Rfam assigns this 176-nucleotide RNA from Leuconostoc carnosum to the family "Lysine riboswitch aptamer".
The organism belongs to Leuconostoc carnosum, within Bacteria.
[Rfam]
RNA sequence: GAUUUACAUAGAGGUUGCAAUUGACAUAAGUACCAAGACCAAGCUGUUGUAGCAGUGAUGCGGUGUUGUGAAAGGGGAUAUUGCCGAAAUAGUUUAUCACUACCAAGAUAGAUUAUUGGGACAAUAGUUAAUAACUGUUGGACUGUCGUUAGAGAUAACGGUGAGCUAUGGCAACU
Numbered sequence: 001g002a003u004u005u006a007c008a009u010a011g012a013g014g015u016u017g018c019a020a021u022u023g024a025c026a027u028a029a030g031u032a033c034c035a036a037g038a039c040c041a042a043g044c045u046g047u048u049g050u051a052g053c054a055g056u057g058a059u060g061c062g063g064u065g066u067u068g069u070g071a072a073a074g075g076g077g078a079u080a081u082u083g084c085c086g087a088a089a090u091a092g093u094u095u096a097u098c099a100c101u102a103c104c105a106a107g108a109u110a111g112a113u114u115a116u117u118g119g120g121a122c123a124a125u126a127g128u129u130a131a132u133a134a135c136u137g138u139u140g141g142a143c144u145g146u147c148g149u150u151a152g153a154g155a156u157a158a159c160g161g162u163g164a165g166c167u168a169u170g171g172c173a174a175c176u
Stems, first nucleotide, its partner, number of pairs: 007170005017084005025076001034068003038064003088117011118144002122140007146161006

Rfam links the family to the GO term lysine biosynthetic process.